This 103-nucleotide sequence from Rhynchospora breviuscula belongs to the Rfam family "Small nucleolar RNA Z266". It is annotated as a C/D-box small nucleolar RNA. Its family is annotated with RNA processing and nucleolus in the Gene Ontology. The base pairs follow the family's consensus structure, which was predicted with PFOLD.

[Rfam]
RNA sequence: UGUAAGCAGGGGUGAUGAAUCAAUUAGAUGUGCGAAGUUGCAUUCAAUGCAACUUUUGAGCUUAACUUUUGAGGCAUUUACAAAAUUUCUGACCUGCGUUGUU
Numbered sequence: 001u002g003u004a005a006g007c008a009g010g011g012g013u014g015a016u017g018a019a020u021c022a023a024u025u026a027g028a029u030g031u032g033c034g035a036a037g038u039u040g041c042a043u044u045c046a047a048u049g050c051a052a053c054u055u056u057u058g059a060g061c062u063u064a065a066c067u068u069u070u071g072a073g074g075c076a077u078u079u080a081c082a083a084a085a086u087u088u089c090u091g092a093c094c095u096g097c098g099u100u101g102u103u
Stems, first nucleotide, its partner, number of pairs: 002102004006097005